[Rfam]
RNA sequence: AUGAAAGUAAGGGGAGAGUUCGGUAGAAACAUGAGCCGACGCCGAAGGAGCAAGCUAUGUGCGAAUCUCUCAGGCAAACAGACUCUUACUUGACG
Numbered sequence: 001a002u003g004a005a006a007g008u009a010a011g012g013g014g015a016g017a018g019u020u021c022g023g024u025a026g027a028a029a030c031a032u033g034a035g036c037c038g039a040c041g042c043c044g045a046a047g048g049a050g051c052a053a054g055c056u057a058u059g060u061g062c063g064a065a066u067c068u069c070u071c072a073g074g075c076a077a078a079c080a081g082a083c084u085c086u087u088a089c090u091u092g093a094c095g
Stems, first nucleotide, its partner, number of pairs: 006090008020039004041075003044071002048069003054062002

This 95-nucleotide RNA from Texcoconibacillus texcoconensis belongs to the Rfam family "Glycine riboswitch aptamer". It scores 71 bits against the family's covariance model. Taxonomically the source falls in Texcoconibacillus (Bacteria, Bacillota, Caryophanales, Bacillaceae).